[Rfam]
RNA sequence: UGCGAUGAGUCGAGAGGUCAGGUAGCCGACCCAUAGAUUGGCUACCCCGCGCGAGCGGAUAUGAUUUUUCGAGUGGGGCACGUUAACCUGCCGGAUUGCAGGGUGCCUGGUCUAUCAGGAAGUGGACAUCCU
Numbered sequence: 001u002g003c004g005a006u007g008a009g010u011c012g013a014g015a016g017g018u019c020a021g022g023u024a025g026c027c028g029a030c031c032c033a034u035a036g037a038u039u040g041g042c043u044a045c046c047c048c049g050c051g052c053g054a055g056c057g058g059a060u061a062u063g064a065u066u067u068u069u070c071g072a073g074u075g076g077g078g079c080a081c082g083u084u085a086a087c088c089u090g091c092c093g094g095a096u097u098g099c100a101g102g103g104u105g106c107c108u109g110g111u112c113u114a115u116c117a118g119g120a121a122g123u124g125g126a127c128a129u130c131c132u
Stems, first nucleotide, its partner, number of pairs: 017065004021046009047058004077107005087102005117132004

Rfam assigns this 132-nucleotide RNA sequence from Limosilactobacillus secaliphilus to the family "Enterococcus sRNA 68 (Lacto-3 RNA)". The family's RNA type in Rfam is small RNA. The source organism's lineage runs through Bacteria, Bacillati, Bacillota, Lactobacillales and Limosilactobacillus.